[Rfam]
Fluoride riboswitch aptamer (crcB RNA motif): a 73-nucleotide RNA sequence from Clostridiaceae bacterium AF18-31LB.
RNA sequence: AAUACAUUUGGGAAUGAAGUUCUCCCAUGGGAAACCAGAACUGCUUAGUUAAGCUGAUGACUUCUACGAUAUU
Numbered sequence: 001a002a003u004a005c006a007u008u009u010g011g012g013a014a015u016g017a018a019g020u021u022c023u024c025c026c027a028u029g030g031g032a033a034a035c036c037a038g039a040a041c042u043g044c045u046u047a048g049u050u051a052a053g054c055u056g057a058u059g060a061c062u063u064c065u066a067c068g069a070u071a072u073u
Stems, first nucleotide, its partner, number of pairs: 010026004016064006043054004